Overview:
This 78-nucleotide RNA belongs to the Rfam family "L20-Deltaproteobacteria ribosomal protein leader".

[Rfam]
RNA sequence: ACUCGUGAACUGUGGGGCUUAAUCUCUCCCCCUUCAGAUCCGGGUGCGGGGAAACUCGCUUAACUGAUUCUCAAGGAG
Numbered sequence: 001a002c003u004c005g006u007g008a009a010c011u012g013u014g015g016g017g018c019u020u021a022a023u024c025u026c027u028c029c030c031c032c033u034u035c036a037g038a039u040c041c042g043g044g045u046g047c048g049g050g051g052a053a054a055c056u057c058g059c060u061u062a063a064c065u066g067a068u069u070c071u072c073a074a075g076g077a078g
Stems, first nucleotide, its partner, number of pairs: 003043003007040002010037003014033004
Pairs were carried over by alignment from the consensus structure, which is taken from published work.